[Rfam]
RNA sequence: GGUUAGUGCAGUGAAUCUGGCAGUAAGCUUGAUAUGACAAGCCGAUGAGUCACCCUUGACCUGGUGGGGUUCUGCCGAUAUAGAUCAGGCGCACUAACA
Numbered sequence: 001g002g003u004u005a006g007u008g009c010a011g012u013g014a015a016u017c018u019g020g021c022a023g024u025a026a027g028c029u030u031g032a033u034a035u036g037a038c039a040a041g042c043c044g045a046u047g048a049g050u051c052a053c054c055c056u057u058g059a060c061c062u063g064g065u066g067g068g069g070u071u072c073u074g075c076c077g078a079u080a081u082a083g084a085u086c087a088g089g090c091g092c093a094c095u096a097a098c099a
Stems, first nucleotide, its partner, number of pairs: 002098008019076004027042005047072005054066001056064003

Overview:
Shown here is a 99-nucleotide sequence from a Methylophilaceae bacterium, a member of the family "Methylophilales-1 RNA". The organism belongs to Methylophilaceae, within Bacteria. Rfam classes the family as a small RNA. A search with the family's covariance model found it, with a score of 81 bits.